[Rfam]
RNA: Molybdenum/Tungsten riboswitch aptamer (Moco RNA motif)
RNA sequence: AUAAUUUAAAAACACUCUAGCCUCUGCACCUGGGUCAACUGAUACGGUGCUUUGGCCGUGGCGGCGCAAAGGCGCUGUCACCAGGGUGCAGGAAGAAAUGACUGCGCCUCCCGUACUGGAAAGGUGUACAUGGCCUCACAAC
Numbered sequence: 001a002u003a004a005u006u007u008a009a010a011a012a013c014a015c016u017c018u019a020g021c022c023u024c025u026g027c028a029c030c031u032g033g034g035u036c037a038a039c040u041g042a043u044a045c046g047g048u049g050c051u052u053u054g055g056c057c058g059u060g061g062c063g064g065c066g067c068a069a070a071g072g073c074g075c076u077g078u079c080a081c082c083a084g085g086g087u088g089c090a091g092g093a094a095g096a097a098a099u100g101a102c103u104g105c106g107c108c109u110c111c112c113g114u115a116c117u118g119g120a121a122a123g124g125u126g127u128a129c130a131u132g133g134c135c136u137c138a139c140a141a142c
Stems, first nucleotide, its partner, number of pairs: 003136001006133001012127004017123001020056003026050005034043003058081009084109008094099001110119002